RNA sequence: CCUUUGCUCAACAAAUCGCCAUUCGAAGCUCACACACGGAGAUGCUCUUUUCGAAGAGCAUCUCGCACCUCAAAAAACAAGCUUUGGGAGAAAGUCCCCGGACGUCUCCUCUUCUACGAGGAGCAUGCGGAAACGCGCCGCCAUAGAAGCACUGCGGCUGACCUCCGCGCCUUGGCCCAGCCGCGGCAUCUGCCCUGCCUACUGCUAAAUUCGUCCUUCUUUGUCCUCUUUUUUUCCGGCACGAACCUUGUUUUCCCUUUCGUUUCUGUUGCCGGCCGCUUAUGGAUGAAGAUACGAGUCCGAGCUGGGAGCGCAACGACUGGGAAUAGGGGUGAGUUUGGAGAGGGGACGAAGGGGUUGGAUGGUAGGUGGACGUUUCGAUGUUCUUUCGCGGUUGUGGUAUCGGGUGCAGAGGAUUUGUUGUCGAGGUCGAUAGGUAUGCGAUUGCCCGGCUGUGUCACAGCAGCUUGGUUACUCGAUGGGGCCCAUUCUUGAUGCAAAG
Numbered sequence: 001c002c003u004u005u006g007c008u009c010a011a012c013a014a015a016u017c018g019c020c021a022u023u024c025g026a027a028g029c030u031c032a033c034a035c036a037c038g039g040a041g042a043u044g045c046u047c048u049u050u051u052c053g054a055a056g057a058g059c060a061u062c063u064c065g066c067a068c069c070u071c072a073a074a075a076a077a078c079a080a081g082c083u084u085u086g087g088g089a090g091a092a093a094g095u096c097c098c099c100g101g102a103c104g105u106c107u108c109c110u111c112u113u114c115u116a117c118g119a120g121g122a123g124c125a126u127g128c129g130g131a132a133a134c135g136c137g138c139c140g141c142c143a144u145a146g147a148a149g150c151a152c153u154g155c156g157g158c159u160g161a162c163c164u165c166c167g168c169g170c171c172u173u174g175g176c177c178c179a180g181c182c183g184c185g186g187c188a189u190c191u192g193c194c195c196u197g198c199c200u201a202c203u204g205c206u207a208a209a210u211u212c213g214u215c216c217u218u219c220u221u222u223g224u225c226c227u228c229u230u231u232u233u234u235u236c237c238g239g240c241a242c243g244a245a246c247c248u249u250g251u252u253u254u255c256c257c258u259u260u261c262g263u264u265u266c267u268g269u270u271g272c273c274g275g276c277c278g279c280u281u282a283u284g285g286a287u288g289a290a291g292a293u294a295c296g297a298g299u300c301c302g303a304g305c306u307g308g309g310a311g312c313g314c315a316a317c318g319a320c321u322g323g324g325a326a327u328a329g330g331g332g333u334g335a336g337u338u339u340g341g342a343g344a345g346g347g348g349a350c351g352a353a354g355g356g357g358u359u360g361g362a363u364g365g366u367a368g369g370u371g372g373a374c375g376u377u378u379c380g381a382u383g384u385u386c387u388u389u390c391g392c393g394g395u396u397g398u399g400g401u402a403u404c405g406g407g408u409g410c411a412g413a414g415g416a417u418u419u420g421u422u423g424u425c426g427a428g429g430u431c432g433a434u435a436g437g438u439a440u441g442c443g444a445u446u447g448c449c450c451g452g453c454u455g456u457g458u459c460a461c462a463g464c465a466g467c468u469u470g471g472u473u474a475c476u477c478g479a480u481g482g483g484g485c486c487c488a489u490u491c492u493u494g495a496u497g498c499a500a501a502g
Base pairs, nucleotide, nucleotide: 002502003501004500005499006498007497008495009494010493011492014446015445016444017443018442019441023088024086025085026084027083028082029081039071040070041069043067044066045065094485096484097483098482099481106123107122108121109120110119111118295415299413300412302410304408305407306406308404317397318396319395320394380390381389383387448471449470451468452467453466454465455464456463
Record summary:
The record is a 502-nucleotide RNA sequence from Trichoderma reesei, which matches "RNase MRP" in Rfam. Rfam's curators put it in the seed alignment. Taxonomically the source falls in Trichoderma reesei (Eukaryota, Opisthokonta, Ascomycota, Sordariomycetes). The family's RNA type in Rfam is ribozyme. The literature on the family includes a 2006 paper in Nucleic Acids Res by Rosenblad et al., "Inventory and analysis of the protein subunits of the ribonucleases P and MRP provides further evidence of homology between the yeast and human enzymes". Its Rfam clan is "RNaseP clan".